About this RNA
The record is a 136-nucleotide RNA from Psychrosphaera haliotis, which matches "CpoB/ybgF ICR thermometer" in Rfam. Lineage of the source: Bacteria > Gammaproteobacteria > Alteromonadales > Pseudoalteromonadaceae > Psychrosphaera. The literature on the family includes a 2016 paper in Proc Natl Acad Sci U S A by Righetti et al., "Temperature-responsive in vitro RNA structurome of Yersinia pseudotuberculosis". The match comes from Rfam's covariance-model search (56 bits). Rfam links the family to the GO terms regulation of translation and response to temperature stimulus. From the family's description: Imprinting control region from upstream of cpoB/ybgF (tol/pal system protein).
RNA sequence: CCAAAUCUCAACGGUAUCUUACGGUGAAGAAAAACCUCUUGAUUUGUCUCGUACUCAAGAUGGCUUCGCUAAAAACCGUCGUUCAGUUUUAGUUUACUAAUAAAAGAGAGCGACAGUCUAUGAGAUUAACUCUAUU
Number, nucleotide and partner (000 for none) at each position: 001c000002c046003a045004a044005a000006u000007c041008u000009c000010a000011a000012c000013g000014g035015u034016a000017u032018c000019u030020u029021a000022c000023g000024g000025u000026g000027a000028a000029g020030a019031a000032a017033a000034a015035c014036c000037u000038c000039u000040u000041g007042a000043u000044u004045u003046g002047u000048c000049u000050c000051g000052u000053a000054c000055u134056c000057a000058a131059g130060a000061u000062g127063g126064c000065u124066u123067c122068g121069c000070u000071a000072a000073a000074a000075a117076c116077c000078g114079u113080c112081g111082u110083u109084c108085a000086g000087u105088u104089u103090u102091a000092g000093u000094u000095u000096a000097c000098u000099a000100a000101u000102a090103a089104a088105a087106g000107a000108g084109a083110g082111c081112g080113a079114c078115a000116g076117u075118c000119u000120a000121u068122g067123a066124g065125a000126u063127u062128a000129a000130c059131u058132c000133u000134a055135u000136u000